Background: This 115-nucleotide RNA sequence from Glycine max belongs to the Rfam family "MIR1520 microRNA precursor family". The family is grouped with related families in Rfam's "MIR1520 microRNA precursor clan". The source organism's lineage runs through Eukaryota, Streptophytina, fabids, Phaseoleae and Glycine subgen. Soja.
RNA sequence: ACAUUGACUGUCACGUGUCACAUCCUGGUUGGACAUGAAAAGAUGCGUCCAAGAAUCCAUUAUAACAUUUUUCUAUUCAUUGUCCGAUCAGAACAUGACAUGUGACCGUCAAUGU
Numbered sequence: 001a002c003a004u005u006g007a008c009u010g011u012c013a014c015g016u017g018u019c020a021c022a023u024c025c026u027g028g029u030u031g032g033a034c035a036u037g038a039a040a041a042g043a044u045g046c047g048u049c050c051a052a053g054a055a056u057c058c059a060u061u062a063u064a065a066c067a068u069u070u071u072u073c074u075a076u077u078c079a080u081u082g083u084c085c086g087a088u089c090a091g092a093a094c095a096u097g098a099c100a101u102g103u104g105a106c107c108g109u110c111a112a113u114g115u
Stems, first nucleotide, its partner, number of pairs: 010106004015101002019097002023093001025091002028088005